Rfam assigns this 89-nucleotide RNA sequence from Marinobacter profundi to the family "Glycine riboswitch aptamer".

RNA sequence: CGCCACCUCGCAGGAGAGAGGGUGCCCGUGCACCCCGCCGAAGGCGCAAACUCCCAUAAACGCUCAGGCUCAUGUACUGCGACCUAUCA
Numbered sequence: 001c002g003c004c005a006c007c008u009c010g011c012a013g014g015a016g017a018g019a020g021g022g023u024g025c026c027c028g029u030g031c032a033c034c035c036c037g038c039c040g041a042a043g044g045c046g047c048a049a050a051c052u053c054c055c056a057u058a059a060a061c062g063c064u065c066a067g068g069c070u071c072a073u074g075u076a077c078u079g080c081g082a083c084c085u086a087u088c089a
Base pairs, nucleotide, nucleotide: 008082009081010080011079012078013077020035021034022033023032037069038068039067040065041064044063045062046061050057

Record summary: Rfam describes the family as follows. This family represents the bacterial glycine riboswitch.